A member of the RNA family "Arthropod 7SK RNA" from Trichomalopsis sarcophagae, 303 nucleotides long.
A reference for the family is Gruber et al. (2008), "Arthropod 7SK RNA", Mol Biol Evol.
NCBI's taxonomy places the organism under Eukaryota, Eumetazoa, Neoptera, Eumetabola, Trichomalopsis.
Pairs were carried over by alignment from the consensus structure, which is taken from published work.
RNA sequence: GGAAGUGUGUGCUAGUGAUGGCACAGCUGAACAUUGAUCGCUAACUAGUAGAUAUAUGGCAGAUCUGCUCAGUGGGUGUUGUCACGUGGUCGCUUCAAGUAGCUUGUGCUCGGCUCCCGAUGCGCCUGCAAACCGAGGCCUGUCUCGUGGCCCUGGCACCUGUAGGCCCGCACGGUCGAGUCUUCACGUCGCUCCUCGAACUACCGCGAUUUCCAAAUUGGGGGGCAAUCGAAUAGGUCAGACGAGGUAAUUGUCGCUUCCAUAUACAAGGCGCUGCAGUUCUGCAGUGUGCCCUUUUUUUUC
Numbered sequence: 001g002g003a004a005g006u007g008u009g010u011g012c013u014a015g016u017g018a019u020g021g022c023a024c025a026g027c028u029g030a031a032c033a034u035u036g037a038u039c040g041c042u043a044a045c046u047a048g049u050a051g052a053u054a055u056a057u058g059g060c061a062g063a064u065c066u067g068c069u070c071a072g073u074g075g076g077u078g079u080u081g082u083c084a085c086g087u088g089g090u091c092g093c094u095u096c097a098a099g100u101a102g103c104u105u106g107u108g109c110u111c112g113g114c115u116c117c118c119g120a121u122g123c124g125c126c127u128g129c130a131a132a133c134c135g136a137g138g139c140c141u142g143u144c145u146c147g148u149g150g151c152c153c154u155g156g157c158a159c160c161u162g163u164a165g166g167c168c169c170g171c172a173c174g175g176u177c178g179a180g181u182c183u184u185c186a187c188g189u190c191g192c193u194c195c196u197c198g199a200a201c202u203a204c205c206g207c208g209a210u211u212u213c214c215a216a217a218u219u220g221g222g223g224g225g226c227a228a229u230c231g232a233a234u235a236g237g238u239c240a241g242a243c244g245a246g247g248u249a250a251u252u253g254u255c256g257c258u259u260c261c262a263u264a265u266a267c268a269a270g271g272c273g274c275u276g277c278a279g280u281u282c283u284g285c286a287g288u289g290u291g292c293c294c295u296u297u298u299u300u301u302u303c
Stems, first nucleotide, its partner, number of pairs: 001261007015085005027072003032067002036065004040060004046054001270293003273288005